[Rfam]
A member of the RNA family "Small nucleolar RNA snoR111" from Amborella trichopoda, 122 nucleotides long. It scores 45 bits against the family's covariance model. Its family is annotated with nucleolus and RNA processing in the Gene Ontology. The family's consensus secondary structure was predicted with WAR. The literature on the family includes a 2002 paper in Curr Biol by Marker et al., "Experimental RNomics: identification of 140 candidates for small non-messenger RNAs in the plant Arabidopsis thaliana". Rfam 15.1 lists 533 matches to the family in 223 species.
RNA sequence: AUCUGGGAGAUAGCCCUUGAUAAGAAUGGGCCCCUCUCUGUUGCAACAGAAUAGAUCAAUGUCAAGAUAUCGUUUCAGUUACUCUGUAUUUUAUGGGCGAUUUGGUUGUUGCUUGAUAACAG
Numbered sequence: 001a002u003c004u005g006g007g008a009g010a011u012a013g014c015c016c017u018u019g020a021u022a023a024g025a026a027u028g029g030g031c032c033c034c035u036c037u038c039u040g041u042u043g044c045a046a047c048a049g050a051a052u053a054g055a056u057c058a059a060u061g062u063c064a065a066g067a068u069a070u071c072g073u074u075u076c077a078g079u080u081a082c083u084c085u086g087u088a089u090u091u092u093a094u095g096g097g098c099g100a101u102u103u104g105g106u107u108g109u110u111g112c113u114u115g116a117u118a119a120c121a122g
Stems, first nucleotide, its partner, number of pairs: 006039005013031004018026001060118002063115004069106004078101003082097003087093001